Annotation
This 217-nucleotide RNA from Lactuca sativa belongs to the Rfam family "MIR394 microRNA precursor family". The organism belongs to Lactuca, within Eukaryota. The family's consensus secondary structure was predicted with WAR. The literature on the family includes a 2004 paper in Mol Cell by Jones-Rhoades and Bartel, "Computational identification of plant microRNAs and their targets, including a stress-induced miRNA". Rfam 15.1 lists 724 matches to the family in 216 species.

RNA sequence: CUAACAGAGUUCUUUGGCAUUCUGUCCACCUCCCCUUUUAUUUAUCAAAACCAACGGCUGUAAGAGGGUAUAGAUAUACGGAAAAUACAAGAAACUUUGUACAUCUGAGCGUGAAGUUGAUGAGGGUCUAGUGUUAAGAAUAGAAGGAAGAUAGAGAUGGUGGUUUAUUAUUUGUGUGGGGGUGGAGGUGGGCAUACUGCCAAUGGAGUUCUGUUGG
Numbered sequence: 001c002u003a004a005c006a007g008a009g010u011u012c013u014u015u016g017g018c019a020u021u022c023u024g025u026c027c028a029c030c031u032c033c034c035c036u037u038u039u040a041u042u043u044a045u046c047a048a049a050a051c052c053a054a055c056g057g058c059u060g061u062a063a064g065a066g067g068g069u070a071u072a073g074a075u076a077u078a079c080g081g082a083a084a085a086u087a088c089a090a091g092a093a094a095c096u097u098u099g100u101a102c103a104u105c106u107g108a109g110c111g112u113g114a115a116g117u118u119g120a121u122g123a124g125g126g127u128c129u130a131g132u133g134u135u136a137a138g139a140a141u142a143g144a145a146g147g148a149a150g151a152u153a154g155a156g157a158u159g160g161u162g163g164u165u166u167a168u169u170a171u172u173u174g175u176g177u178g179g180g181g182g183u184g185g186a187g188g189u190g191g192g193c194a195u196a197c198u199g200c201c202a203a204u205g206g207a208g209u210u211c212u213g214u215u216g217g
Stems, first nucleotide, its partner, number of pairs: 011207001014203006023194011